[Rfam]
RNA sequence: AGUCAAGAGUUUAAGGCCAUAACAGAAGCACUCAUGGCAUAGCCCUGUCAGAUUCCAAGGAAUCUGCAAAAUUCUGCU
Numbered sequence: 001a002g003u004c005a006a007g008a009g010u011u012u013a014a015g016g017c018c019a020u021a022a023c024a025g026a027a028g029c030a031c032u033c034a035u036g037g038c039a040u041a042g043c044c045c046u047g048u049c050a051g052a053u054u055c056c057a058a059g060g061a062a063u064c065u066g067c068a069a070a071a072u073u074c075u076g077c078u
Base pairs, nucleotide, nucleotide: 015044016043017042021078023076024075025074026073027072028040049066050065051064052063053062054061055060
Shown here is a 78-nucleotide RNA from Alligator sinensis, a member of the family "Mammalian CPEB3 ribozyme".
The match comes from Rfam's covariance-model search (38 bits).
NCBI's taxonomy places the organism under Eukaryota, Metazoa, Euteleostomi, Alligatoridae, Alligator.